[Rfam]
Source information:
This 70-nucleotide RNA from Peptoniphilus sp. BV3C26 belongs to the Rfam family "Fluoride riboswitch aptamer (crcB RNA motif)".

RNA sequence: AUAUUUUUUGGGAAUGAAGUUCUCCCAAGAUUUUUCUGAACUGCUAUAAGCUGAUGACUUCUGUAUUUUA
Numbered sequence: 001a002u003a004u005u006u007u008u009u010g011g012g013a014a015u016g017a018a019g020u021u022c023u024c025c026c027a028a029g030a031u032u033u034u035u036c037u038g039a040a041c042u043g044c045u046a047u048a049a050g051c052u053g054a055u056g057a058c059u060u061c062u063g064u065a066u067u068u069u070a
Stems, first nucleotide, its partner, number of pairs: 010026004016061006043051003